[Rfam]
RNA sequence: AGGUCACUUGCGGGAGAGACCGGCCGAAGACGCCGGCGCCGAAGGCGCAACCGCCCCGGAAACGCUCAGGCUAACGGACCGCAAGCCUAAG
Numbered sequence: 001a002g003g004u005c006a007c008u009u010g011c012g013g014g015a016g017a018g019a020c021c022g023g024c025c026g027a028a029g030a031c032g033c034c035g036g037c038g039c040c041g042a043a044g045g046c047g048c049a050a051c052c053g054c055c056c057c058g059g060a061a062a063c064g065c066u067c068a069g070g071c072u073a074a075c076g077g078a079c080c081g082c083a084a085g086c087c088u089a090a091g
Stems, first nucleotide, its partner, number of pairs: 007085007020036004038071003041067002045065003051059002
The record is a 91-nucleotide sequence from Oceanicaulis sp. HTCC2633, which matches "Glycine riboswitch aptamer" in Rfam. The match comes from Rfam's covariance-model search (74 bits). NCBI's taxonomy places the organism under Bacteria, Pseudomonadati, Maricaulales, Maricaulaceae, Oceanicaulis. This family represents the bacterial glycine riboswitch.